[Rfam]
RNA sequence: CUGCAGCCAGGGCAGCCCUCGGGAGGCCUGGACGCUGAUAAGCCGGUAGUGCAGCGCUACGGAAAAACACCGGCAGCC
Numbered sequence: 001c002u003g004c005a006g007c008c009a010g011g012g013c014a015g016c017c018c019u020c021g022g023g024a025g026g027c028c029u030g031g032a033c034g035c036u037g038a039u040a041a042g043c044c045g046g047u048a049g050u051g052c053a054g055c056g057c058u059a060c061g062g063a064a065a066a067a068c069a070c071c072g073g074c075a076g077c078c
Stems, first nucleotide, its partner, number of pairs: 001015004007031005016023002033056005042074005
The family of this 78-nucleotide sequence from Pseudomonas extremaustralis is "Proteo-phage-1 RNA". The base pairs follow the family's consensus structure, which is taken from published work. The family's RNA type in Rfam is small RNA. The organism belongs to Pseudomonas extremaustralis 14-3, within Bacteria.